Shown here is a 177-nucleotide sequence from Intestinimonas butyriciproducens, a member of the family "Lysine riboswitch aptamer".
The source organism's lineage runs through Bacteria, Bacillota, Clostridia, Eubacteriales and Intestinimonas.
The base pairs follow the family's consensus structure, which is taken from published work.
RNA sequence: AUGGUGAAUAGAGGCGCGGUGCGCCAGGUAGCAUCGUAAUGCAAAGGGUUGGCAGGCCCGAUGAACGAUGGGAAUGGGACCACCGCCGAAGGGGUAGGGACGCUGUUGGGUACUACUCCUGCGUCGUACGCUCAGUGCGUACGGAGUGUCAUGACUACAUGGUGCGCUAUUUACAUG
Numbered sequence: 001a002u003g004g005u006g007a008a009u010a011g012a013g014g015c016g017c018g019g020u021g022c023g024c025c026a027g028g029u030a031g032c033a034u035c036g037u038a039a040u041g042c043a044a045a046g047g048g049u050u051g052g053c054a055g056g057c058c059c060g061a062u063g064a065a066c067g068a069u070g071g072g073a074a075u076g077g078g079a080c081c082a083c084c085g086c087c088g089a090a091g092g093g094g095u096a097g098g099g100a101c102g103c104u105g106u107u108g109g110g111u112a113c114u115a116c117u118c119c120u121g122c123g124u125c126g127u128a129c130g131c132u133c134a135g136u137g138c139g140u141a142c143g144g145a146g147u148g149u150c151a152u153g154a155c156u157a158c159a160u161g162g163u164g165c166g167c168u169a170u171u172u173a174c175a176u177g
Stems, first nucleotide, its partner, number of pairs: 006172006016086006023080001025078001032070006090120008099111001101109001121147002124144008149162005